Source information: tRNA: an 84-nucleotide RNA from Colletotrichum incanum.
[Rfam]
RNA sequence: GGACCCAUGGCGCAACGGUAGCGCGUUCGACUCCAGUUCUGGACUGUCAUCGAAAGGUUAUCUGUUCGAAUCAGGUUGGGUUCA
Number, nucleotide and partner (000 for none) at each position: 001g083002g082003a081004c080005c079006c078007a077008u000009g000010g024011c023012g022013c021014a000015a000016c000017g000018g000019u000020a000021g013022c012023g011024c010025g000026u054027u053028c052029g051030a050031c000032u000033c000034c000035a000036g000037u000038u000039c000040u000041g000042g000043a000044c000045u000046g000047u000048c000049a000050u030051c029052g028053a027054a026055a000056g000057g000058u000059u000060a076061u075062c074063u073064g072065u000066u000067c000068g000069a000070a000071u000072c064073a063074g062075g061076u060077u007078g006079g005080g004081u003082u002083c001084a000
About this RNA:
Rfam links the family to the GO term triplet codon-amino acid adaptor activity. The family's consensus secondary structure is taken from published work.